[Rfam]
RNA sequence: AUUGCAAGUUCAAGACCAUAGCAGAAGUGCUCACAACAUGGCCUGUCAGGUUCCAAUGAAUCAGUGAAUUCUAUU
Number, nucleotide and partner (000 for none) at each position: 001a000002u000003u000004g000005c000006a000007a000008g000009u000010u000011c000012a000013a000014g043015a000016c041017c040018a000019u000020a075021g074022c000023a072024g071025a070026a069027g039028u038029g037030c000031u000032c000033a000034c000035a000036a000037c029038a028039u027040g017041g016042c000043c014044u000045g000046u000047c064048a000049g062050g061051u060052u059053c058054c000055a000056a000057u000058g053059a052060a051061u050062c049063a000064g047065u000066g000067a000068a000069u026070u025071c024072u023073a000074u021075u020
Mammalian CPEB3 ribozyme: a 75-nucleotide RNA from Crocodylus porosus. From the family's description: The mammalian CPEB3 ribozyme is a self cleaving RNA located in the second intron of the CPEB3 gene which belongs to a family of genes regulating messenger RNA polyadenylation. This ribozyme is highly conserved and found only in mammals. The CPEB3 ribozyme is structurally and biochemically related to the human hepatitis delta virus (HDV) ribozyme and the HDV ribozyme is proposed to have arisen from the human transcriptome. A search with the family's covariance model found it, with a score of 39 bits.